[Rfam]
RNA sequence: CGUGGGAGCGUCGCGCAUUGAGUUUACUCAGUGCGUCGUGACUGCGUGCCUUUUGAAGAAUGA
Numbered sequence: 001c002g003u004g005g006g007a008g009c010g011u012c013g014c015g016c017a018u019u020g021a022g023u024u025u026a027c028u029c030a031g032u033g034c035g036u037c038g039u040g041a042c043u044g045c046g047u048g049c050c051u052u053u054u055g056a057a058g059a060a061u062g063a
Stems, first nucleotide, its partner, number of pairs: 002045004008039003012035005049062001051060001
Dot-bracket structure: .((((..(((.(((((..............))))).)))..))))...(.(........).).